[Rfam]
RNA sequence: AUAUCGAAAGGGCAAACUCUUCGAAAGAGGAGGACGCAAAGCCACGGAUCUAAGGUUGACGAAACUAAGAUGGCCGGGUUACCGAA
Numbered sequence: 001a002u003a004u005c006g007a008a009a010g011g012g013c014a015a016a017c018u019c020u021u022c023g024a025a026a027g028a029g030g031a032g033g034a035c036g037c038a039a040a041g042c043c044a045c046g047g048a049u050c051u052a053a054g055g056u057u058g059a060c061g062a063a064a065c066u067a068a069g070a071u072g073g074c075c076g077g078g079u080u081a082c083c084g085a086a
Stems, first nucleotide, its partner, number of pairs: 012037002017032006040080004045076003048071003055065003

The family of this 86-nucleotide RNA from Brevibacillus sp. SYP-B805 is "c-di-GMP-I riboswitch aptamer". It scores 85 bits against the family's covariance model. The base pairs follow the family's consensus structure, which is taken from published work.